[Rfam]
RNA sequence: UUAUAGGUUGUUUUAGCUAUUGGACUGUUUUGUCCUUCUCUGUCACAGCACAAUUUAUUCUUUGACAGAGAGGGACAAAAAAGUUCUAUAAAUAGCUAAAACGUCUUAUAAC
Numbered sequence: 001u002u003a004u005a006g007g008u009u010g011u012u013u014u015a016g017c018u019a020u021u022g023g024a025c026u027g028u029u030u031u032g033u034c035c036u037u038c039u040c041u042g043u044c045a046c047a048g049c050a051c052a053a054u055u056u057a058u059u060c061u062u063u064g065a066c067a068g069a070g071a072g073g074g075a076c077a078a079a080a081a082a083g084u085u086c087u088a089u090a091a092a093u094a095g096c097u098a099a100a101a102c103g104u105c106u107u108a109u110a111a112c
Stems, first nucleotide, its partner, number of pairs: 001111006011101011022086005028080001029069006050058001052056001
Dot-bracket structure: ((((((....((((((((((((((((.(((((((...............(.(...).).....))))))..........).)))))....)))))))))))....)))))).
The family of this 112-nucleotide RNA from Plutella xylostella is "mir-8517 microRNA precursor family". Gene Ontology terms of the family: miRNA-mediated post-transcriptional gene silencing and RISC complex. Taxonomically the source falls in Plutella (Eukaryota, Metazoa, Panarthropoda, Dicondylia). The match comes from Rfam's covariance-model search (71 bits).